[Rfam]
RNA sequence: CCAAGCUGAAGUUCUGUCAUACACUCAGGCUGUAGCUAAUGGAAGUCAGUGCAUCACAGAACUUUGACUCGAG
Numbered sequence: 001c002c003a004a005g006c007u008g009a010a011g012u013u014c015u016g017u018c019a020u021a022c023a024c025u026c027a028g029g030c031u032g033u034a035g036c037u038a039a040u041g042g043a044a045g046u047c048a049g050u051g052c053a054u055c056a057c058a059g060a061a062c063u064u065u066g067a068c069u070c071g072a073g
Base pairs, nucleotide, nucleotide: 004069005068007066008065009064010063011062012061013060014059015058016057022051023050024049025048028047029046030045031044

Rfam assigns this 73-nucleotide RNA sequence from Callorhinchus milii to the family "mir-148/mir-152 microRNA precursor family".
Rfam 15.1 lists 1,272 matches to the family in 609 species.
Lineage of the source: Eukaryota > Bilateria > Chondrichthyes > Holocephali > Callorhinchus.